[Rfam]
RNA sequence: GUUACUGGAUGACAACGAGAGAGAGCACGCUGGAAUGCACUCAUGUGAGAAGCAUGACUUUGUUCUUGCGUGCCCUCUCCCGCUGUCUUCAAGCU
Numbered sequence: 001g002u003u004a005c006u007g008g009a010u011g012a013c014a015a016c017g018a019g020a021g022a023g024a025g026c027a028c029g030c031u032g033g034a035a036u037g038c039a040c041u042c043a044u045g046u047g048a049g050a051a052g053c054a055u056g057a058c059u060u061u062g063u064u065c066u067u068g069c070g071u072g073c074c075c076u077c078u079c080c081c082g083c084u085g086u087c088u089u090c091a092a093g094c095u
Stems, first nucleotide, its partner, number of pairs: 011087004016082002020078002023075001025073006032066003
This 95-nucleotide RNA from Ceratodon purpureus belongs to the Rfam family "MIR535 microRNA precursor family". The source organism's lineage runs through Eukaryota, Viridiplantae, Streptophytina, Dicranidae and Ceratodon. It scores 80 bits against the family's covariance model. Rfam links the family to the GO terms RISC complex and miRNA-mediated post-transcriptional gene silencing. For this family Rfam cites "Conservation and divergence of microRNAs and their functions in Euphorbiaceous plants" (Zeng et al., Nucleic Acids Res, 2010).